Small nucleolar RNA SNORD60: an 82-nucleotide RNA from Oryctolagus cuniculus. Gene Ontology terms of the family: nucleolus and RNA processing. Clan: SNORD60 clan. The family's RNA type in Rfam is C/D-box small nucleolar RNA. The family's consensus secondary structure was predicted with PFOLD.
RNA sequence: AGCCUGUGAUGAGGCCUUUGAUUUCUGACACCUCGUAUGAGAACUGCACGCGCAGUCUGAUUACCUCGCGGAGCUGAGGCUC
Numbered sequence: 001a002g003c004c005u006g007u008g009a010u011g012a013g014g015c016c017u018u019u020g021a022u023u024u025c026u027g028a029c030a031c032c033u034c035g036u037a038u039g040a041g042a043a044c045u046g047c048a049c050g051c052g053c054a055g056u057c058u059g060a061u062u063a064c065c066u067c068g069c070g071g072a073g074c075u076g077a078g079g080c081u082c
Stems, first nucleotide, its partner, number of pairs: 001081004043056005